[Rfam]
RNA: small Cajal body-specific RNA Dm46E3
Organism: Drosophila melanogaster
RNA sequence: GGCCCCAAAUGAUGAGGGUUACUUUGUACGAAUGUCAGUGAAAUUGAAUUAAACAACGAAAAAUGCUUCAUGGCUUAACGGAGAUUUAUGAGGAAAACCGAACUUGAGGCCCACGUCAGUGGCUGAAGCCAAUCAUU
Numbered sequence: 001g002g003c004c005c006c007a008a009a010u011g012a013u014g015a016g017g018g019u020u021a022c023u024u025u026g027u028a029c030g031a032a033u034g035u036c037a038g039u040g041a042a043a044u045u046g047a048a049u050u051a052a053a054c055a056a057c058g059a060a061a062a063a064u065g066c067u068u069c070a071u072g073g074c075u076u077a078a079c080g081g082a083g084a085u086u087u088a089u090g091a092g093g094a095a096a097a098c099c100g101a102a103c104u105u106g107a108g109g110c111c112c113a114c115g116u117c118a119g120u121g122g123c124u125g126a127a128g129c130c131a132a133u134c135a136u137u
Base pairs, nucleotide, nucleotide: 001130002129003128005122006121007120010118011117012116013115014114016112017111018110023060024059025058026057027056035047036046037045038044039043066093067092068091069090070089071088072087073086074083075082076081098109099108